[Rfam]
RNA sequence: AGGGCGCGCUGCUACUGACGGAUGAUCGUGGGCUACCACGGGGGAGCGGCGCGAGCAAACGAUAUGCCGACCGUCUGGGCAUGCGCG
Numbered sequence: 001a002g003g004g005c006g007c008g009c010u011g012c013u014a015c016u017g018a019c020g021g022a023u024g025a026u027c028g029u030g031g032g033c034u035a036c037c038a039c040g041g042g043g044g045a046g047c048g049g050c051g052c053g054a055g056c057a058a059a060c061g062a063u064a065u066g067c068c069g070a071c072c073g074u075c076u077g078g079g080c081a082u083g084c085g086c087g
Stems, first nucleotide, its partner, number of pairs: 005053008015043002017075005028039004064082005
Shown here is an 87-nucleotide RNA sequence from Olsenella uli, a member of the family "ZMP/ZTP riboswitch aptamer (pfl RNA motif)". Rfam links the family to the GO terms one-carbon metabolic process and regulation of purine nucleotide biosynthetic process. The organism belongs to Olsenella uli, within Bacteria. The family's consensus secondary structure is taken from published work. The literature on the family includes a 2019 paper in Acta Crystallogr F Struct Biol Commun by Jones et al., "Co-crystal structure of the Fusobacterium ulcerans ZTP riboswitch using an X-ray free-electron laser". The match comes from Rfam's covariance-model search (58 bits).